[Rfam]
RNA: Manganese Mn2+ riboswitch aptamer (yybP-ykoY)
RNA sequence: CUAAGGAGUAAAGGGGAGUAGCGUCAGGGAAACCUGAAACAAAGUCGUCAUUCCAUGGAUUCUGUCCAUCGGCUUUGUUGGCAUAACGAGUUUAUUUAUGCUU
Numbered sequence: 001c002u003a004a005g006g007a008g009u010a011a012a013g014g015g016g017a018g019u020a021g022c023g024u025c026a027g028g029g030a031a032a033c034c035u036g037a038a039a040c041a042a043a044g045u046c047g048u049c050a051u052u053c054c055a056u057g058g059a060u061u062c063u064g065u066c067c068a069u070c071g072g073c074u075u076u077g078u079u080g081g082c083a084u085a086a087c088g089a090g091u092u093u094a095u096u097u098a099u100g101c102u103u
Stems, first nucleotide, its partner, number of pairs: 025036003038079010055069005080102007